[Rfam]
RNA sequence: AUUCCAGAGGUGAUGUGGGUAACCGCAUCACUCCGGCAGCAAGCGAAGGUGUCAUUGGCACCCGCGGUAUGGUCCCCCGGCUAUGCCGCGAAUUUUUUUU
Numbered sequence: 001a002u003u004c005c006a007g008a009g010g011u012g013a014u015g016u017g018g019g020u021a022a023c024c025g026c027a028u029c030a031c032u033c034c035g036g037c038a039g040c041a042a043g044c045g046a047a048g049g050u051g052u053c054a055u056u057g058g059c060a061c062c063c064g065c066g067g068u069a070u071g072g073u074c075c076c077c078c079g080g081c082u083a084u085g086c087c088g089c090g091a092a093u094u095u096u097u098u099u100u
Stems, first nucleotide, its partner, number of pairs: 009032010036044002048062006063090012

The family of this 100-nucleotide sequence from Vibrio mediterranei is "Translational regulator of tfoXVC". A reference for the family is Yamamoto et al. (2011), "Identification of a chitin-induced small RNA that regulates translation of the tfoX gene, encoding a positive regulator of natural competence in Vibrio cholerae", J Bacteriol. The sequence is in the family's curated seed alignment. Pairs were carried over by alignment from the consensus structure, which was predicted with WAR. NCBI's taxonomy places the organism under Bacteria, Pseudomonadati, Vibrionaceae, Vibrio, Vibrio mediterranei.